[Rfam]
RNA sequence: UGGGGUUCUCGCUACUGGCGCUAUGAGGUGGGGCACCACCGGGGAGCGGAAACCGCGUCGGCCGUGCGCCUGGGUCGACGCA
Numbered sequence: 001u002g003g004g005g006u007u008c009u010c011g012c013u014a015c016u017g018g019c020g021c022u023a024u025g026a027g028g029u030g031g032g033g034c035a036c037c038a039c040c041g042g043g044g045a046g047c048g049g050a051a052a053c054c055g056c057g058u059c060g061g062c063c064g065u066g067c068g069c070c071u072g073g074g075u076c077g078a079c080g081c082a
Base pairs, nucleotide, nucleotide: 004054005053006052007051009049010048011047012046015043016042017070018069019068020067021066028039029038030037031036059077060076061075062074063073
A member of the RNA family "ZMP/ZTP riboswitch aptamer (pfl RNA motif)" from Herbidospora galbida, 82 nucleotides long.
It scores 58 bits against the family's covariance model.